Shown here is a 97-nucleotide RNA from Agromyces protaetiae, a member of the family "Bacterial small signal recognition particle RNA". Rfam's curators write: The signal recognition particle (SRP) is a universally conserved ribonucleoprotein involved in the co-translational targeting of proteins to membranes. A search with the family's covariance model found it, with a score of 59 bits.

RNA sequence: CCAGGCUCCUCACGUGGCGCCAUCCAGGCCAACUCCCCCAGGGCGGAAACGCAGCAAGGGUAACCGGGCUCUGGCGGGUGCGUGAGGGGUCCCUGGA
Numbered sequence: 001c002c003a004g005g006c007u008c009c010u011c012a013c014g015u016g017g018c019g020c021c022a023u024c025c026a027g028g029c030c031a032a033c034u035c036c037c038c039c040a041g042g043g044c045g046g047a048a049a050c051g052c053a054g055c056a057a058g059g060g061u062a063a064c065c066g067g068g069c070u071c072u073g074g075c076g077g078g079u080g081c082g083u084g085a086g087g088g089g090u091c092c093c094u095g096g097a
Base pairs, nucleotide, nucleotide: 004091005090006089007088008087009086010085011084012083013082014081015078018076019075020074021073022072024068025067027065028064035060036059037058043052044051045050
Dot-bracket structure: ...((((((((((((..(((((.((.((......(((.....(((....))).....)))...)).))...))))).)..)))))))))))......
The base pairs follow the family's consensus structure, which is taken from published work.